[Rfam]
Shown here is a 109-nucleotide RNA from Ancylostoma caninum, a member of the family "SL2 RNA". It scores 64 bits against the family's covariance model. From the family's description: This family represents SL2 RNA. SL2 RNA is involved in trans splicing in lower eukaryotes. Trans-splicing is a form of RNA processing. The family has 30 seed sequences and 598 matches in Rfam 15.1. Rfam classes the family as a non-coding RNA gene. Pairs were carried over by alignment from the consensus structure, which is taken from published work.
RNA sequence: GGUUUUGACCCAGUAUCUCAAGGUACUACUGGUGUCCGACCUACCACUAGUGGUUGUGUCGAAAACCUUAAUUUUUGGAUCGCCUUUUCGGGGUAUCCGGAAGGGCAAU
Numbered sequence: 001g002g003u004u005u006u007g008a009c010c011c012a013g014u015a016u017c018u019c020a021a022g023g024u025a026c027u028a029c030u031g032g033u034g035u036c037c038g039a040c041c042u043a044c045c046a047c048u049a050g051u052g053g054u055u056g057u058g059u060c061g062a063a064a065a066c067c068u069u070a071a072u073u074u075u076u077g078g079a080u081c082g083c084c085u086u087u088u089c090g091g092g093g094u095a096u097c098c099g100g101a102a103g104g105g106c107a108a109u
Base pairs, nucleotide, nucleotide: 007036008035009032010031013029014028016025018023037061038060039059040058041056043054044053045052086105087104088103092098093097